[Rfam]
RNA sequence: CCAAAUUCUUAAGCUAAGAUUUGUAAAAAAAGGGCUCUUAUAUAAGAGCUUUUAGGCUUAUAUUUAAGCUUUUAUAUAAGAACCCUUUCUUCACAAAUCUUAGUUUAAGAUUUGG
Dot-bracket structure: (((((((.(..(((((((((((((.((.((((((.((..((((((((((((..............))))))))))))..)).)))))).)).))))))))))).))).)))))))
RNA: MIR1888 microRNA precursor family